[Rfam]
RNA sequence: CCCGCGAUAGGACGGAAAGACCCCGUGAACCUUUACUGUAAUCUGAUAUUGGAUCUUGGUUGGUCAUGUGUAGCAUAGCUGGGAGGCUUUGAAGCGUUGUCGUCAGGCAGCGUGGAGCCACAGGUGAAAUACCAGUCUUGAUUAAUCGUGAUUCUAACAGCGACCCGUGAAGCCGGGCGCUGAACAGUGUCAGAGGGUCAGUUUGACUGGGGCGGUUUCCUCCCAAAGUGUAACGGAGGAGUGCGAAGGUUCCCUCAGCAUGGUCGGCAAUCAUGCGUAGAGCAUAUAGGUAGAAGGGAGCUUGACUGCGAGACCUACAAGUCGAGCAGGUGCGAAAGCAGGCCUAAGUGAUCCGGUGGUCGCUCGUGGUAGCGCCAUCGCUCAACGGACAAAAGGUACUCCGGGGAUAACAGGCUGAUCGCCGCCAAGAGUCCACAUCGACGCGGCGGUUUGGCACCUCGAUGUCGGCUCAUCGCAUCCUGGGGCUGGAGAAGGUCCCAAGGGUUGGGCUGUUCGCCCAUUAAAGCGGUACGCGAGCUGGGUUCAGAACGUCGUGAGACAGUUCGGUCCUUAUCCAUCGUGGGCGCA
Numbered sequence: 001c002c003c004g005c006g007a008u009a010g011g012a013c014g015g016a017a018a019g020a021c022c023c024c025g026u027g028a029a030c031c032u033u034u035a036c037u038g039u040a041a042u043c044u045g046a047u048a049u050u051g052g053a054u055c056u057u058g059g060u061u062g063g064u065c066a067u068g069u070g071u072a073g074c075a076u077a078g079c080u081g082g083g084a085g086g087c088u089u090u091g092a093a094g095c096g097u098u099g100u101c102g103u104c105a106g107g108c109a110g111c112g113u114g115g116a117g118c119c120a121c122a123g124g125u126g127a128a129a130u131a132c133c134a135g136u137c138u139u140g141a142u143u144a145a146u147c148g149u150g151a152u153u154c155u156a157a158c159a160g161c162g163a164c165c166c167g168u169g170a171a172g173c174c175g176g177g178c179g180c181u182g183a184a185c186a187g188u189g190u191c192a193g194a195g196g197g198u199c200a201g202u203u204u205g206a207c208u209g210g211g212g213c214g215g216u217u218u219c220c221u222c223c224c225a226a227a228g229u230g231u232a233a234c235g236g237a238g239g240a241g242u243g244c245g246a247a248g249g250u251u252c253c254c255u256c257a258g259c260a261u262g263g264u265c266g267g268c269a270a271u272c273a274u275g276c277g278u279a280g281a282g283c284a285u286a287u288a289g290g291u292a293g294a295a296g297g298g299a300g301c302u303u304g305a306c307u308g309c310g311a312g313a314c315c316u317a318c319a320a321g322u323c324g325a326g327c328a329g330g331u332g333c334g335a336a337a338g339c340a341g342g343c344c345u346a347a348g349u350g351a352u353c354c355g356g357u358g359g360u361c362g363c364u365c366g367u368g369g370u371a372g373c374g375c376c377a378u379c380g381c382u383c384a385a386c387g388g389a390c391a392a393a394a395g396g397u398a399c400u401c402c403g404g405g406g407a408u409a410a411c412a413g414g415c416u417g418a419u420c421g422c423c424g425c426c427a428a429g430a431g432u433c434c435a436c437a438u439c440g441a442c443g444c445g446g447c448g449g450u451u452u453g454g455c456a457c458c459u460c461g462a463u464g465u466c467g468g469c470u471c472a473u474c475g476c477a478u479c480c481u482g483g484g485g486c487u488g489g490a491g492a493a494g495g496u497c498c499c500a501a502g503g504g505u506u507g508g509g510c511u512g513u514u515c516g517c518c519c520a521u522u523a524a525a526g527c528g529g530u531a532c533g534c535g536a537g538c539u540g541g542g543u544u545c546a547g548a549a550c551g552u553c554g555u556g557a558g559a560c561a562g563u564u565c566g567g568u569c570c571u572u573a574u575c576c577a578u579c580g581u582g583g584g585c586g587c588a
Base pairs, nucleotide, nucleotide: 001584002583003582004581005580006579007578008577010576011575012574014571015570022405023404024403025402027401028400029397030396031395032394033393035202036201037200038199042194043193044192045191046190047189048188051154052153053152054151055150057148058147059146060145061144062143063142064141065140066139068137078136079135080134081133082132085119086118087117094113095112096111097110098109099108100107101106158182159181160180164177165176166175167174205217206216207215208214218240219239220238221237222236223235241386243343244342249301250300251299252298253297254296255281256280258276259275260274261273262272263271282291283290306329307328308327309326312323313322314321331340332339333338354380355379356378357377358376359375360374362373363372414455415454416453418452419449420448421447422446423445424444425443429439430438466541467539468538469537470536471533472530473529474528475527476526479504480503482499483498484497485496486495487494506520507519508518509517510516547565548564549563550562551560552559553558
The family of this 588-nucleotide part of an RNA from uncultured bacterium AD249-B8 is "Bacterial large subunit ribosomal RNA". The base pairs follow the family's consensus structure, which is taken from published work.